[Rfam]
RNA sequence: GGAGCCAUAGGGAGGGAUAACAAUCCAGCCUUGGGGAAAGAAAGCUGCCAGGGAGGCUUGGAGAUUGGCGACCAUCCUAGUGACUUA
Numbered sequence: 001g002g003a004g005c006c007a008u009a010g011g012g013a014g015g016g017a018u019a020a021c022a023a024u025c026c027a028g029c030c031u032u033g034g035g036g037a038a039a040g041a042a043a044g045c046u047g048c049c050a051g052g053g054a055g056g057c058u059u060g061g062a063g064a065u066u067g068g069c070g071a072c073c074a075u076c077c078u079a080g081u082g083a084c085u086u087a
Stems, first nucleotide, its partner, number of pairs: 002086003006082003010078004015073002018070001021067005029061002038059003045052001
This 87-nucleotide RNA from Equus caballus belongs to the Rfam family "mir-9014 microRNA precursor family". The match comes from Rfam's covariance-model search (72 bits). The family's consensus secondary structure was predicted with RNAalifold.